[Rfam]
RNA sequence: UUUGUCCCAUAUUAUUCAAAACAAUGAACUUUACUUUAAACAAUACUUGGUGGUGGAAUUCUCGAAACGCAACUUUCGUGAACUAAACCCUAUUGUAUUUUUUAACCAAAACAAUAUAAAGGCUUGUC
Numbered sequence: 001u002u003u004g005u006c007c008c009a010u011a012u013u014a015u016u017c018a019a020a021a022c023a024a025u026g027a028a029c030u031u032u033a034c035u036u037u038a039a040a041c042a043a044u045a046c047u048u049g050g051u052g053g054u055g056g057a058a059u060u061c062u063c064g065a066a067a068c069g070c071a072a073c074u075u076u077c078g079u080g081a082a083c084u085a086a087a088c089c090c091u092a093u094u095g096u097a098u099u100u101u102u103u104a105a106c107c108a109a110a111a112c113a114a115u116a117u118a119a120a121g122g123c124u125u126g127u128c
Stems, first nucleotide, its partner, number of pairs: 036105003040101001042099005049091002052088001057084001059082003066076002